The family of this 159-nucleotide RNA from Paenibacillus flagellatus is "c-di-AMP riboswitch aptamer (ydaO/yuaA leader)".
[Rfam]
RNA sequence: AUUUCCGCAUCGCUGAGUUUUCCGUAAGGGAAAACGGGGGAACCAAUCGGUUUAUUGGGGUGAAUUUCGCGCAGAGCUUGCUCACGGGCUCCCGCGCGGAUAGGGCGACUCUCGCGUCCGAACCCGUCAGCUAACCUCGUAAGCGUGAAGAGAGAGGUA
Numbered sequence: 001a002u003u004u005c006c007g008c009a010u011c012g013c014u015g016a017g018u019u020u021u022c023c024g025u026a027a028g029g030g031a032a033a034a035c036g037g038g039g040g041a042a043c044c045a046a047u048c049g050g051u052u053u054a055u056u057g058g059g060g061u062g063a064a065u066u067u068c069g070c071g072c073a074g075a076g077c078u079u080g081c082u083c084a085c086g087g088g089c090u091c092c093c094g095c096g097c098g099g100a101u102a103g104g105g106c107g108a109c110u111c112u113c114g115c116g117u118c119c120g121a122a123c124c125c126g127u128c129a130g131c132u133a134a135c136c137u138c139g140u141a142a143g144c145g146u147g148a149a150g151a152g153a154g155a156g157g158u159a
Stems, first nucleotide, its partner, number of pairs: 011145004018033005034140006044057004058125003066100007103119004
A search with the family's covariance model found it, with a score of 92 bits.